[Rfam]
RNA sequence: GUCACAGGUGGUGCGGCGCCAGUAAUGGCGCAGCGCCGAAGCGCAGUACCUAACGAAGACGGUAAAAAG
Number, nucleotide and partner (000 for none) at each position: 001g000002u000003c000004a000005c000006a000007g000008g000009u038010g037011g036012u035013g034014c033015g000016g031017c030018g029019c028020c027021a000022g000023u000024a000025a000026u000027g020028g019029c018030g017031c016032a000033g014034c013035g012036c011037c010038g009039a000040a000041g000042c000043g000044c000045a000046g000047u000048a000049c000050c000051u000052a000053a000054c000055g000056a000057a000058g000059a000060c000061g000062g000063u000064a000065a000066a000067a000068a000069g000

Source information
The record is a 69-nucleotide RNA from Pseudomonas putida, which matches "sucC RNA" in Rfam. The family's RNA type in Rfam is cis-regulatory element. The sequence is in the family's curated seed alignment.